[Rfam]
Description: Rfam assigns this 83-nucleotide RNA sequence from Anhinga rufa to the family "Small nucleolar RNA SNORD72". The literature on the family includes a 2001 paper in EMBO J by Huttenhofer et al., "RNomics: an experimental approach that identifies 201 candidates for novel, small, non-messenger RNAs in mouse". NCBI's taxonomy places the organism under Eukaryota, Teleostomi, Aequornithes, Anhingidae, Anhinga. The family's RNA type in Rfam is C/D-box small nucleolar RNA. The base pairs follow the family's consensus structure.

RNA sequence: CAUUUGUUAAUAAGAUGUAUCUUAUUAAAAUUGUAUGAUCAUAUGAACUCCGUGGUGAUUUCAGUGCAUUACUGAAAUAAGCU
Numbered sequence: 001c002a003u004u005u006g007u008u009a010a011u012a013a014g015a016u017g018u019a020u021c022u023u024a025u026u027a028a029a030a031u032u033g034u035a036u037g038a039u040c041a042u043a044u045g046a047a048c049u050c051c052g053u054g055g056u057g058a059u060u061u062c063a064g065u066g067c068a069u070u071a072c073u074g075a076a077a078u079a080a081g082c083u
Stems, first nucleotide, its partner, number of pairs: 003081006